[Rfam]
Overview
Shown here is a 69-nucleotide RNA sequence from Hibiscus syriacus, a member of the family "MIR164 microRNA precursor family". The literature on the family includes a 2009 paper in BMC Genomics by Mica et al., "High throughput approaches reveal splicing of primary microRNA transcripts and tissue specific expression of mature microRNAs in Vitis vinifera". The organism belongs to Hibiscus, within Eukaryota.

RNA sequence: UGGAGAAGGGGAGCACGUGCAAGGCUCGUUUAAGACACGUAAAACUUGCACGUGCCCUGCUUCUCCAAC
Numbered sequence: 001u002g003g004a005g006a007a008g009g010g011g012a013g014c015a016c017g018u019g020c021a022a023g024g025c026u027c028g029u030u031u032a033a034g035a036c037a038c039g040u041a042a043a044a045c046u047u048g049c050a051c052g053u054g055c056c057c058u059g060c061u062u063c064u065c066c067a068a069c
Stems, first nucleotide, its partner, number of pairs: 001067008010058002013055011028036002